[Rfam]
Shown here is a 73-nucleotide RNA sequence from a Verrucomicrobiaceae bacterium, a member of the family "tRNA". The match comes from Rfam's covariance-model search (78 bits). Pairs were carried over by alignment from the consensus structure, which is taken from published work. Its family is annotated with triplet codon-amino acid adaptor activity in the Gene Ontology. Rfam describes the family as follows. Transfer RNA (tRNA) molecules are approximately 80 nucleotides in length.

RNA sequence: GGGCAGGUAGCUCAGUCGGUAGAGCAGUUGGCUUUUAACCAAUUGGUCCUGGGUUCGAGUCCCAGCCUGCCCA
Numbered sequence: 001g002g003g004c005a006g007g008u009a010g011c012u013c014a015g016u017c018g019g020u021a022g023a024g025c026a027g028u029u030g031g032c033u034u035u036u037a038a039c040c041a042a043u044u045g046g047u048c049c050u051g052g053g054u055u056c057g058a059g060u061c062c063c064a065g066c067c068u069g070c071c072c073a
Stems, first nucleotide, its partner, number of pairs: 001072007010025004027043005049065005